[Rfam]
Rfam assigns this 301-nucleotide sequence from Fulmarus glacialis to the family "Metazoan signal recognition particle RNA". Rfam's curators write: The signal recognition particle (SRP) is a universally conserved ribonucleoprotein. The family's RNA type in Rfam is non-coding RNA gene. Rfam links the family to the GO terms signal recognition particle, endoplasmic reticulum targeting and SRP-dependent cotranslational protein targeting to membrane, signal sequence recognition.
RNA sequence: GCCGGGCACGGUGGCUUGUGCCUGUAAUCCCAGUGCCAGGGAGGCUGAGGCUGGCAGAUGGCUUGAGCCCGGGGGGUUCUGGGCUGCAGCGAGGUGUGCCGAGCGGGCGUCUGCAUGAAGUUUAGCAUCGAUGUGGUGGUACUGGGGGAGCCGUGGGCCACCAGGUCACCUAAGGAGGGGUGAACUGGCCACAGGUCAGAGACGGAGCAGGUCAAAGCUCCUGUGCUGAUCAGUAGCGGGAUGGCACCUGUGAACAGUCCCUGUAGCACAGCCCGGGUGAGAGAGCGGGACCCAGUUUCCU
Number, nucleotide and partner (000 for none) at each position: 001g045002c044003c043004g023005g022006g021007c020008a019009c018010g017011g016012u000013g000014g000015c000016u011017u010018g009019u008020g007021c006022c005023u004024g000025u000026a000027a000028u042029c041030c040031c000032a000033g000034u000035g000036c000037c000038a000039g000040g030041g029042a028043g003044g002045c001046u000047g299048a298049g297050g296051c295052u294053g293054g292055c000056a000057g000058a000059u288060g000061g286062c285063u284064u283065g000066a000067g278068c277069c276070c275071g274072g273073g272074g000075g000076g000077u000078u000079c271080u270081g269082g000083g267084c266085u265086g264087c263088a262089g261090c000091g259092a000093g258094g000095u256096g255097u254098g000099c252100c000101g000102a000103g251104c250105g249106g248107g247108c000109g245110u244111c240112u239113g000114c238115a000116u236117g000118a234119a000120g231121u000122u229123u228124a227125g226126c225127a224128u223129c000130g167131a166132u165133g000134u163135g162136g161137u160138g159139g158140u157141a000142c155143u000144g000145g152146g151147g000148g000149a000150g000151c146152c145153g000154u000155g142156g000157g140158c139159c138160a137161c136162c135163a134164g000165g132166u131167c130168a000169c175170c174171u000172a000173a000174g170175g169176a222177g221178g220179g219180g218181u217182g000183a000184a000185c000186u214187g213188g212189c211190c210191a000192c000193a000194g000195g000196u205197c204198a000199g000200a000201g000202a000203c000204g197205g196206a000207g000208c000209a000210g190211g189212u188213c187214a186215a000216a000217g181218c180219u179220c178221c177222u176223g128224u127225g126226c125227u124228g123229a122230u000231c120232a000233g000234u118235a000236g116237c000238g114239g112240g111241a000242u000243g000244g110245c109246a000247c107248c106249u105250g104251u103252g099253a000254a097255c096256a095257g000258u093259c091260c000261c089262u088263g087264u086265a085266g084267c083268a000269c081270a080271g079272c073273c072274c071275g070276g069277g068278u067279g000280a000281g000282a000283g064284a063285g062286c061287g000288g059289g000290a000291c000292c054293c053294a052295g051296u050297u049298u048299c047300c000301u000

The match comes from Rfam's covariance-model search (186 bits). Clan: SRP clan. Pairs were carried over by alignment from the consensus structure, which is taken from published work.